RNA sequence: UGAUGUAAGUGUCAAAAGUAUCAAUUGCGUUUGUGCUCGCGCAAAUAAGCAAUUGAUACUUAUUGACACGCCGAACACUGAAAACGAAAUAAAAUGAUAUGAAUACGCCAUUUUAUGGGAGUUUGAGGUGUUCAAGGAUUGCGGGAAUCGCUUCGCAAUGGAGCAAUCUGAUUACACCA
Numbered sequence: 001u002g003a004u005g006u007a008a009g010u011g012u013c014a015a016a017a018g019u020a021u022c023a024a025u026u027g028c029g030u031u032u033g034u035g036c037u038c039g040c041g042c043a044a045a046u047a048a049g050c051a052a053u054u055g056a057u058a059c060u061u062a063u064u065g066a067c068a069c070g071c072c073g074a075a076c077a078c079u080g081a082a083a084a085c086g087a088a089a090u091a092a093a094a095u096g097a098u099a100u101g102a103a104u105a106c107g108c109c110a111u112u113u114u115a116u117g118g119g120a121g122u123u124u125g126a127g128g129u130g131u132u133c134a135a136g137g138a139u140u141g142c143g144g145g146a147a148u149c150g151c152u153u154c155g156c157a158a159u160g161g162a163g164c165a166a167u168c169u170g171a172u173u174a175c176a177c178c179a
Stems, first nucleotide, its partner, number of pairs: 001179002004176004010068004016061013030047001031044005073133007082124004089116007136169007147159002150156001
The family of this 179-nucleotide RNA sequence from Allocoprococcus comes is "Clostridiales-1 RNA". A search with the family's covariance model found it, with a score of 110 bits. The family's consensus secondary structure is taken from published work. By type it is a small RNA. Taxonomically the source falls in Allocoprococcus comes (Bacteria, Bacillati, Bacillota, Clostridia).